Shown here is an 88-nucleotide RNA from Alicyclobacillus tolerans, a member of the family "ZMP/ZTP riboswitch aptamer (pfl RNA motif)".

[Rfam]
RNA sequence: GGCUGCGCGCAGAACUGGCGGAUAACGUGGAAAACCACGGGGGACUGCGCACGAUUGCUGCCUUUUGCCGACCGCCUGGGCAACGUCU
Numbered sequence: 001g002g003c004u005g006c007g008c009g010c011a012g013a014a015c016u017g018g019c020g021g022a023u024a025a026c027g028u029g030g031a032a033a034a035c036c037a038c039g040g041g042g043g044a045c046u047g048c049g050c051a052c053g054a055u056u057g058c059u060g061c062c063u064u065u066u067g068c069c070g071a072c073c074g075c076c077u078g079g080g081c082a083a084c085g086u087c088u
Stems, first nucleotide, its partner, number of pairs: 004053002007050006015042002017076005027038004065083005
For this family Rfam cites "Co-crystal structure of the Fusobacterium ulcerans ZTP riboswitch using an X-ray free-electron laser" (Jones et al., Acta Crystallogr F Struct Biol Commun, 2019).